The family of this 82-nucleotide RNA from Clostridium sp. CAG:389 is "skipping-rope RNA". Lineage of the source: Bacteria > Bacillati > Bacillota > Clostridiaceae > Clostridium. Rfam classes the family as a small RNA.

RNA sequence: GUUAUUUGAAGUGGACAAUAGUGCCAUCCACACACCCUAGUGGUCAAAAGAGAUGCAGGACUUGGUACACCUGCCGGAUAAC
Number, nucleotide and partner (000 for none) at each position: 001g082002u081003u080004a079005u078006u077007u076008g075009a000010a000011g031012u030013g029014g028015a027016c000017a000018a000019u000020a000021g068022u067023g066024c065025c064026a000027u015028c014029c013030a012031c011032a000033c050034a044035c043036c042037c000038u000039a000040g000041u000042g036043g035044u034045c000046a000047a000048a000049a000050g033051a000052g000053a000054u000055g074056c073057a072058g071059g070060a000061c000062u000063u000064g025065g024066u023067a022068c021069a000070c059071c058072u057073g056074c055075c008076g007077g006078a005079u004080a003081a002082c001